[Rfam]
RNA: skipping-rope RNA
RNA sequence: AAACAUUGAGGACGGAACGGGCAGCCGUCGCCUUUAUUUGGAGAUGCAGGGAACGUCAUCCUGCCAAUGUUU
Number, nucleotide and partner (000 for none) at each position: 001a072002a071003a070004c069005a068006u067007u066008g065009a000010g000011g029012a028013c027014g026015g025016a000017a000018c000019g000020g057021g056022c055023a000024g000025c015026c014027g013028u012029c011030g000031c041032c000033u000034u000035u000036a000037u000038u000039u000040g000041g031042a000043g000044a000045u000046g064047c063048a062049g061050g060051g000052a000053a000054c000055g022056u021057c020058a000059u000060c050061c049062u048063g047064c046065c008066a007067a006068u005069g004070u003071u002072u001